[Rfam]
RNA sequence: AAUAGGAAGGGUGAUGGAGUCCACCUUUAACUGCUAUUUUUUCAGCUGAUGACUCCUGCUUUCAA
Dot-bracket structure: .........[[[[..((((((]]]].......(((........)))....)))))).........
RNA: Fluoride riboswitch aptamer (crcB RNA motif)